A member of the RNA family "Group II catalytic intron D1-D4-3" from Novosphingobium pentaromativorans, 155 nucleotides long. Pairs were carried over by alignment from the consensus structure.
RNA sequence: GUAGCCGCGAGGCCGUGUGGGGAAGAACCGCAGCAUCAAACGAAAGUGAACCCCUGAGCAGGCUGUUUCGGUAGGGUGAGCGUACCUUCGACCGCGACGCCCAAAAUCCAACCGAGGCCGGGGCAGUAAUGGGGGCGGGCGCGGCGGGACAUCCA
Numbered sequence: 001g002u003a004g005c006c007g008c009g010a011g012g013c014c015g016u017g018u019g020g021g022g023a024a025g026a027a028c029c030g031c032a033g034c035a036u037c038a039a040a041c042g043a044a045a046g047u048g049a050a051c052c053c054c055u056g057a058g059c060a061g062g063c064u065g066u067u068u069c070g071g072u073a074g075g076g077u078g079a080g081c082g083u084a085c086c087u088u089c090g091a092c093c094g095c096g097a098c099g100c101c102c103a104a105a106a107u108c109c110a111a112c113c114g115a116g117g118c119c120g121g122g123g124c125a126g127u128a129a130u131g132g133g134g135g136c137g138g139g140c141g142c143g144g145c146g147g148g149a150c151a152u153c154c155a
Stems, first nucleotide, its partner, number of pairs: 001016002004013003024152001028147004033142001036138002051135006062127003066123007074102004080095003
Dot-bracket structure: ((.(((....))).)).......(...((((.(..((.............((((((.....(((.(((((((.((((..(((..........)))...))))..............))))))).)))..)))))).))...).))))....)...